[Rfam]
Description:
A member of the RNA family "Manganese Mn2+ riboswitch aptamer (yybP-ykoY)" from Neisseria leonii, 180 nucleotides long. It scores 52 bits against the family's covariance model. This RNA was originally discovered in E. coli during a large scale screen and was named SraF. The family was later found to exist upstream of related families of protein genes in many bacteria, including the the yybP and ykoK genes in B. subtilis. The specific functions of these proteins are unknown, but this structured RNA element may be involved in their genetic regulation as a riboswitch.
RNA sequence: ACAGCCUGCUCUUAGGGGAGUAGCCAUGCGGCCGCGUGCCGCAGCGUGCAUCAACAUAAUUGCCGCCCGUUGCGGCAUGGUGCGCGCACCCUGAUUCUCAGCGGCAGGCAAGACUUAAGACAUAUCCGGCGGCGGCAGGCGCGCGGGGUAUGUCUUUUUUGUUUGCCUGCCGUUCGGAGU
Numbered sequence: 001a002c003a004g005c006c007u008g009c010u011c012u013u014a015g016g017g018g019a020g021u022a023g024c025c026a027u028g029c030g031g032c033c034g035c036g037u038g039c040c041g042c043a044g045c046g047u048g049c050a051u052c053a054a055c056a057u058a059a060u061u062g063c064c065g066c067c068c069g070u071u072g073c074g075g076c077a078u079g080g081u082g083c084g085c086g087c088a089c090c091c092u093g094a095u096u097c098u099c100a101g102c103g104g105c106a107g108g109c110a111a112g113a114c115u116u117a118a119g120a121c122a123u124a125u126c127c128g129g130c131g132g133c134g135g136c137a138g139g140c141g142c143g144c145g146g147g148g149u150a151u152g153u154c155u156u157u158u159u160u161g162u163u164u165g166c167c168u169g170c171c172g173u174u175c176g177g178a179g180u
Stems, first nucleotide, its partner, number of pairs: 028042003044087010061077005088180002091177004